[Rfam]
RNA sequence: GUUCUUGCGCAGUGGCAGUUACCUUUUCACUGAGCGUUAUUGCGAGGAGAGGCGAUUGCUGAUUGUAAACUAAGAUCCAACCGCAGCAAUGAUUUCAUUGUCACAAUUUUUGCUGCUUCUUCGGAAG
Dot-bracket structure: .....................(((((((.....(((....)))..)))))))..............................(...(((((....)))))...)...........((((....))))
RNA: U4 spliceosomal RNA
Organism: Rotaria magnacalcarata